Shown here is a 102-nucleotide sequence from Pontibacillus yanchengensis, a member of the family "TPP riboswitch aptamer (THI element)". Vitamin B(1) in its active form thiamin pyrophosphate (TPP) is an essential coenzyme that is synthesised by coupling of pyrimidine and thiazole moieties in bacteria. The match comes from Rfam's covariance-model search (68 bits). The organism belongs to Pontibacillus yanchengensis, within Bacteria. Its family is annotated with thiamine pyrophosphate binding in the Gene Ontology.

[Rfam]
RNA sequence: AUAAAAAGCUAGGGGUGCCAUGUACAUGGCUGAGAGGAUUCGUUCCGACCCUUUGAACCUGAAUUGGUUAAGACCAACGGAGGGAAGCAGAAGACGUACGUA
Numbered sequence: 001a002u003a004a005a006a007a008g009c010u011a012g013g014g015g016u017g018c019c020a021u022g023u024a025c026a027u028g029g030c031u032g033a034g035a036g037g038a039u040u041c042g043u044u045c046c047g048a049c050c051c052u053u054u055g056a057a058c059c060u061g062a063a064u065u066g067g068u069u070a071a072g073a074c075c076a077a078c079g080g081a082g083g084g085a086a087g088c089a090g091a092a093g094a095c096g097u098a099c100g101u102a
Base pairs, nucleotide, nucleotide: 008088009087010086011052012051013050014049017030018029019028020027021026037045038044058083059082060081064077065076066075067074